[Rfam]
RNA sequence: CAAAUUCAAUAGAAGUACCUUCGUAUAUCCUCGAUAAUAUGGUUCGAAAGUUUCUACCAGACCACCGUAAAUGGUUUGACUAUGAAGGCAGCUAUUCUAUUU
Dot-bracket structure: .................((((((((.....((((.........))))..........(((((((.......)))))))..))))))))..............